RNA: serC leader
Organism: Falsochrobactrum ovis
RNA sequence: CAGCGGGCCACGCCUCCCCAACGAGGCGCGUGCUAUCUGUGAGGAUAGGAAUA
Numbered sequence: 001c002a003g004c005g006g007g008c009c010a011c012g013c014c015u016c017c018c019c020a021a022c023g024a025g026g027c028g029c030g031u032g033c034u035a036u037c038u039g040u041g042a043g044g045a046u047a048g049g050a051a052u053a
Base pairs, nucleotide, nucleotide: 011028012027013026014025015024016023033048034047035046036045037044038043